Shown here is an 81-nucleotide RNA sequence from Nicotiana tabacum, a member of the family "Small nucleolar RNA R21". The organism belongs to Nicotiana, within Eukaryota. The match comes from Rfam's covariance-model search (58 bits). A reference for the family is Barneche et al. (2001), "Identification of 66 box C/D snoRNAs in Arabidopsis thaliana: extensive gene duplications generated multiple isoforms predicting new ribosomal RNA 2'-O-methylation sites", J Mol Biol. Rfam links the family to the GO terms nucleolus and RNA processing. It is annotated as a C/D-box small nucleolar RNA.
RNA sequence: UAUCGCUAUGACGAGUAAAAUUAUGUUUUAAAAGUAGUGGACUGAAAUAUCCAUUGAUGAGCAAAUUAAUUCCGAGCGAUA
Dot-bracket structure: ((((((.....................................................................))))))